RNA sequence: AAGAGGAGGUGCUAUGUGCCAUGCGGGCACAUAUUGGAAUGCGCCGACGAACUGCCGCCGACCGUAAGGGAGGGGGCGAUACAAGAA
Numbered sequence: 001a002a003g004a005g006g007a008g009g010u011g012c013u014a015u016g017u018g019c020c021a022u023g024c025g026g027g028c029a030c031a032u033a034u035u036g037g038a039a040u041g042c043g044c045c046g047a048c049g050a051a052c053u054g055c056c057g058c059c060g061a062c063c064g065u066a067a068g069g070g071a072g073g074g075g076g077c078g079a080u081a082c083a084a085g086a087a
Base pairs, nucleotide, nucleotide: 008045009044010043011042012041014032015031016030017029018028019027054077055076056075058073059072062069063068

Background:
Rfam assigns this 87-nucleotide sequence to the family "GA-cis RNA". By type it is a small RNA.